[Rfam]
RNA sequence: CAGCACACUCGUCUUGCCGCUGGUGGAAACACUAGAGGAAAGUCCGAACCUCAAAAAGACAAAACGCUGGGGAAAGCCCAGGGAGAUGUGAGAGCAUUUUACGGAAAGUGCAACAGAAAGUGUACCGCUUGCGAAAGUAAGUAAGGGUGAAAAGGUGGUGUAAGAGACUACCGCAAAUUCAGCAAUGAAUUUGGCAUUGAAAACCCCGUUUGAGGCAAGCCCAAGUAGGACUGCAAACGCCCGUCUUUUGGCAGCAGUUGGGUUGGGUGCUAUGACACGUAAGUAAUUAUGUGUCCAGAUAAAUGGCAAGACCUGCUUUGCAGGACAGAAUUUGGCUUAUAGGGUGUGCUUUAUA
Numbered sequence: 001c002a003g004c005a006c007a008c009u010c011g012u013c014u015u016g017c018c019g020c021u022g023g024u025g026g027a028a029a030c031a032c033u034a035g036a037g038g039a040a041a042g043u044c045c046g047a048a049c050c051u052c053a054a055a056a057a058g059a060c061a062a063a064a065c066g067c068u069g070g071g072g073a074a075a076g077c078c079c080a081g082g083g084a085g086a087u088g089u090g091a092g093a094g095c096a097u098u099u100u101a102c103g104g105a106a107a108g109u110g111c112a113a114c115a116g117a118a119a120g121u122g123u124a125c126c127g128c129u130u131g132c133g134a135a136a137g138u139a140a141g142u143a144a145g146g147g148u149g150a151a152a153a154g155g156u157g158g159u160g161u162a163a164g165a166g167a168c169u170a171c172c173g174c175a176a177a178u179u180c181a182g183c184a185a186u187g188a189a190u191u192u193g194g195c196a197u198u199g200a201a202a203a204c205c206c207c208g209u210u211u212g213a214g215g216c217a218a219g220c221c222c223a224a225g226u227a228g229g230a231c232u233g234c235a236a237a238c239g240c241c242c243g244u245c246u247u248u249u250g251g252c253a254g255c256a257g258u259u260g261g262g263u264u265g266g267g268u269g270c271u272a273u274g275a276c277a278c279g280u281a282a283g284u285a286a287u288u289a290u291g292u293g294u295c296c297a298g299a300u301a302a303a304u305g306g307c308a309a310g311a312c313c314u315g316c317u318u319u320g321c322a323g324g325a326c327a328g329a330a331u332u333u334g335g336c337u338u339a340u341a342g343g344g345u346g347u348g349c350u351u352u353a354u355a
Base pairs, nucleotide, nucleotide: 002350003349004348005347006346007345008344009343010342011340012311013310014309015308016307017306018305020035021034022033023032024031025030040338041337042336044335045334046333047332048331049215050214051213052212057247058246062211063210064209065208066207067081068080069079070078071077082102083100084099085098086097087096088095089094103206104205108204109203111199112198125146126145127142128141129140130139131138132137154172155171156170157169158168159167173195174193175192176191177190178189179188180187181186219268220267221266222265229259230258231257232256233255234254239252240251241250275294276293277292278291279290280289281288282287
The record is a 355-nucleotide RNA from Candidatus Deianiraea vastatrix, which matches "Bacterial RNase P class A" in Rfam. The family's RNA type in Rfam is ribozyme. The match comes from Rfam's covariance-model search (256 bits). Rfam links the family to the GO terms ribonuclease P activity, tRNA processing and dimeric ribonuclease P complex. Taxonomically the source falls in Candidatus Deianiraea (Bacteria, Pseudomonadati, Rickettsiales, Candidatus Deianiraeaceae).